RNA sequence: UGGGCUGGUCGCAAGACCCAGGUCCAUCAAA
Numbered sequence: 001u002g003g004g005c006u007g008g009u010c011g012c013a014a015g016a017c018c019c020a021g022g023u024c025c026a027u028c029a030a031a
Stems, first nucleotide, its partner, number of pairs: 001026006007018004
Rfam assigns this 31-nucleotide RNA from bacterium 1XD42-8 to the family "DUF3800-XI RNA".
About the family: Actinobacteria, Firmicutes, Proteobacteria, Spirochaetes (1 example).
The family's consensus secondary structure is taken from published work.
It is annotated as a small RNA.